Description: The record is an 84-nucleotide sequence from Panagrolaimus sp. PS1159, which matches "mir-31 microRNA precursor family" in Rfam. The organism belongs to Panagrolaimus, within Eukaryota. It scores 60 bits against the family's covariance model. The family is grouped with related families in Rfam's "mir-31 microRNA precursor family".

RNA sequence: AGAAGGGGAUGAGGCAAGAUGUUGGCAUAGCUGAGUUAUUAUUUAAAUCUUCAGCAAUGCUACAUAUGGCCAUGUCCCCCCUUU
Numbered sequence: 001a002g003a004a005g006g007g008g009a010u011g012a013g014g015c016a017a018g019a020u021g022u023u024g025g026c027a028u029a030g031c032u033g034a035g036u037u038a039u040u041a042u043u044u045a046a047a048u049c050u051u052c053a054g055c056a057a058u059g060c061u062a063c064a065u066a067u068g069g070c071c072a073u074g075u076c077c078c079c080c081c082u083u084u
Stems, first nucleotide, its partner, number of pairs: 005079007013071003017067001019065003023062006030055002
The family has 75 seed sequences and 1,181 matches in Rfam 15.1.